[Rfam]
RNA sequence: CUCUGCGUAGCACCGCAGGCAGGAGCGGGGGACCCAAGGUAAGUGCCGGUCCGGAUACGUCCGGAACGGCUUGGGGUGAAGACGGGGCGGCGCACGCCGCACCGGCCGGGCGACUCACUAGCCCGAACCCGACAGCUCACCUCGUAGGCGUCGGUGAGAAGGAAC
Numbered sequence: 001c002u003c004u005g006c007g008u009a010g011c012a013c014c015g016c017a018g019g020c021a022g023g024a025g026c027g028g029g030g031g032a033c034c035c036a037a038g039g040u041a042a043g044u045g046c047c048g049g050u051c052c053g054g055a056u057a058c059g060u061c062c063g064g065a066a067c068g069g070c071u072u073g074g075g076g077u078g079a080a081g082a083c084g085g086g087g088c089g090g091c092g093c094a095c096g097c098c099g100c101a102c103c104g105g106c107c108g109g110g111c112g113a114c115u116c117a118c119u120a121g122c123c124c125g126a127a128c129c130c131g132a133c134a135g136c137u138c139a140c141c142u143c144g145u146a147g148g149c150g151u152c153g154g155u156g157a158g159a160a161g162g163a164a165c
Base pairs, nucleotide, nucleotide: 001023002022025145026144027143028142029141030140035073036072037071038070074130075129076128083104084103085102108124109123110122111121
The family of this 165-nucleotide RNA sequence from Streptomyces lonarensis is "c-di-AMP riboswitch aptamer (ydaO/yuaA leader)". About the family: This family represents a conserved RNA structure found upstream of the ydaO and yuaA genes in Bacillus subtilis and related genes in other bacteria. Taxonomically the source falls in Streptomyces (Bacteria, Bacillati, Actinomycetota, Kitasatosporales). A search with the family's covariance model found it, with a score of 57 bits.